A member of the RNA family "FMN riboswitch aptamer (RFN element)" from Aurantimonas coralicida, 147 nucleotides long. Its family is annotated with FMN binding in the Gene Ontology.
RNA sequence: ACCCGUUCUCAGGGCGGGGUGAAAGUCCCCACCGGCGGUAUGCGGUGGUUGCCGCGAGCCCGCGAGCGCUCUUCGGCUUCGAAGGGAUCAGCAGAUCAGGUGCGGUGCCUGAGCCGACGGUCAUAGUCCGGAUGAGAGAGAACGUAC
Numbered sequence: 001a002c003c004c005g006u007u008c009u010c011a012g013g014g015c016g017g018g019g020u021g022a023a024a025g026u027c028c029c030c031a032c033c034g035g036c037g038g039u040a041u042g043c044g045g046u047g048g049u050u051g052c053c054g055c056g057a058g059c060c061c062g063c064g065a066g067c068g069c070u071c072u073u074c075g076g077c078u079u080c081g082a083a084g085g086g087a088u089c090a091g092c093a094g095a096u097c098a099g100g101u102g103c104g105g106u107g108c109c110u111g112a113g114c115c116g117a118c119g120g121u122c123a124u125a126g127u128c129c130g131g132a133u134g135a136g137a138g139a140g141a142a143c144g145u146a147c
Stems, first nucleotide, its partner, number of pairs: 004144007017029003031127002033116002035063004058114002066092002096112005118130003